[Rfam]
RNA sequence: AGUGUACAAUUUAAAUGGUUCCGUAUAUGCCUGGGAAUUGGCCCGGGCGUUUCUACCGGGCGACCGUAAUUGCCCGACUACGGGAGGGAAAGUGUACCUA
Numbered sequence: 001a002g003u004g005u006a007c008a009a010u011u012u013a014a015a016u017g018g019u020u021c022c023g024u025a026u027a028u029g030c031c032u033g034g035g036a037a038u039u040g041g042c043c044c045g046g047g048c049g050u051u052u053c054u055a056c057c058g059g060g061c062g063a064c065c066g067u068a069a070u071u072g073c074c075c076g077a078c079u080a081c082g083g084g085a086g087g088g089a090a091a092g093u094g095u096a097c098c099u100a
Base pairs, nucleotide, nucleotide: 019085020084021083022082023081024080025079029048030047031046032045033044034043035042057076058075059074060073061072062071063070